[Rfam]
Notes
The family of this 83-nucleotide RNA sequence from Bacteroides faecichinchillae is "Bacteroides-1 RNA". It is annotated as a small RNA. A search with the family's covariance model found it, with a score of 61 bits.

RNA sequence: UUGCAAGCCACUCUGAUGCUUCUUAGUGUGUAUGUGAAUAUACUUAGUUAGUACUUAUACCUCCCCGGUAUAGACAGGUGAUU
Dot-bracket structure: .................(((..((((.(.((((....)))).)))))..)))..(((((((.....)))))))..........